This 112-nucleotide RNA from Sulfobacillus acidophilus belongs to the Rfam family "Glycine riboswitch aptamer". Pairs were carried over by alignment from the consensus structure. The source organism's lineage runs through Bacteria, Bacillota, Clostridia, Sulfobacillus and Sulfobacillus acidophilus. A search with the family's covariance model found it, with a score of 54 bits. About the family: This family represents the bacterial glycine riboswitch.
[Rfam]
RNA sequence: AUGAACAAAACCGGAGAGAUGCUGGGUCUUCUCAGGGUCGCCGAAGGAGCAACUGCCCGGCUGCUGACGGUCGGGAGGAAUCUCUCAGGCAGGAAAGGACGGUUUUCGGACG
Dot-bracket structure: ......(((((((........((...........))...(((((..(((...((.....................))....))))).))).........)))))))......
Numbered sequence: 001a002u003g004a005a006c007a008a009a010a011c012c013g014g015a016g017a018g019a020u021g022c023u024g025g026g027u028c029u030u031c032u033c034a035g036g037g038u039c040g041c042c043g044a045a046g047g048a049g050c051a052a053c054u055g056c057c058c059g060g061c062u063g064c065u066g067a068c069g070g071u072c073g074g075g076a077g078g079a080a081u082c083u084c085u086c087a088g089g090c091a092g093g094a095a096a097g098g099a100c101g102g103u104u105u106u107c108g109g110a111c112g
Stems, first nucleotide, its partner, number of pairs: 007106007022036002040090003043086002047084003053077002